[Rfam]
RNA sequence: UCUGGUGAUGAUGACACACUUGCCCUCACUGAGAAUACUAUUCUGUAAUGAGAACACAAUUGUACUCAACCUGAACCAGA
Numbered sequence: 001u002c003u004g005g006u007g008a009u010g011a012u013g014a015c016a017c018a019c020u021u022g023c024c025c026u027c028a029c030u031g032a033g034a035a036u037a038c039u040a041u042u043c044u045g046u047a048a049u050g051a052g053a054a055c056a057c058a059a060u061u062g063u064a065c066u067c068a069a070c071c072u073g074a075a076c077c078a079g080a
Base pairs, nucleotide, nucleotide: 001080002079003078004077005076006075
RNA: Small nucleolar RNA SNORD103/SNORD85